[Rfam]
This 66-nucleotide RNA sequence belongs to the Rfam family "S15-Flavobacteria ribosomal protein leader".
Rfam classes the family as a cis-regulatory leader.
Clan: Ribosomal Protein S15 Leader clan.
RNA sequence: UAUAUUUGCAAACUCAACGGAUAUUCCAUUGAUAUACAUAAUAAUCAUUUAAAUAAUAUUGGCAUG
Numbered sequence: 001u002a003u004a005u006u007u008g009c010a011a012a013c014u015c016a017a018c019g020g021a022u023a024u025u026c027c028a029u030u031g032a033u034a035u036a037c038a039u040a041a042u043a044a045u046c047a048u049u050u051a052a053a054u055a056a057u058a059u060u061g062g063c064a065u066g
Base pairs, nucleotide, nucleotide: 014032015031016030017029019027